[Rfam]
RNA sequence: AAUCUUGUUCAUAGGAACAAAGAAAAGCAAAUUUAUUCUAUACUCGAUAAGUACCAGAUGCAAUGGGG
Numbered sequence: 001a002a003u004c005u006u007g008u009u010c011a012u013a014g015g016a017a018c019a020a021a022g023a024a025a026a027g028c029a030a031a032u033u034u035a036u037u038c039u040a041u042a043c044u045c046g047a048u049a050a051g052u053a054c055c056a057g058a059u060g061c062a063a064u065g066g067g068g
Base pairs, nucleotide, nucleotide: 003022006019007018008017009016010015043067044066045065051059052058